RNA: Actinobacteria sRNA Ms_IGR-7
RNA sequence: ACGAGGUGCCUUGCUGGUCGGGCCUGGUGGAAGCGUGAGAACUCCCAUCAUCCCAGCUCAGCGGGCACCUCUGUGCGUCAGCCCUCCCCACGGCCCAUCACCGAUCGGUGGAUCCAG
Numbered sequence: 001a002c003g004a005g006g007u008g009c010c011u012u013g014c015u016g017g018u019c020g021g022g023c024c025u026g027g028u029g030g031a032a033g034c035g036u037g038a039g040a041a042c043u044c045c046c047a048u049c050a051u052c053c054c055a056g057c058u059c060a061g062c063g064g065g066c067a068c069c070u071c072u073g074u075g076c077g078u079c080a081g082c083c084c085u086c087c088c089c090a091c092g093g094c095c096c097a098u099c100a101c102c103g104a105u106c107g108g109u110g111g112a113u114c115c116a117g
Stems, first nucleotide, its partner, number of pairs: 003071009015060003019056001021054002025050004030045001032043002101111003